[Rfam]
RNA sequence: ACUGCAAGUGAUGAGAAAACAGACAGGGACAUCGGCACUCCUAUCUGUGGAGGGUGAUGACUUGGUCUAAUGGGAAUCUCUCUGAUGCACA
Numbered sequence: 001a002c003u004g005c006a007a008g009u010g011a012u013g014a015g016a017a018a019a020c021a022g023a024c025a026g027g028g029a030c031a032u033c034g035g036c037a038c039u040c041c042u043a044u045c046u047g048u049g050g051a052g053g054g055u056g057a058u059g060a061c062u063u064g065g066u067c068u069a070a071u072g073g074g075a076a077u078c079u080c081u082c083u084g085a086u087g088c089a090c091a
Stems, first nucleotide, its partner, number of pairs: 003089004
The family of this 91-nucleotide sequence from Cocos nucifera is "Small nucleolar RNA R44/J54/Z268 family". The organism belongs to Cocos, within Eukaryota. The base pairs follow the family's consensus structure, which was predicted with PFOLD. It is annotated as a C/D-box small nucleolar RNA.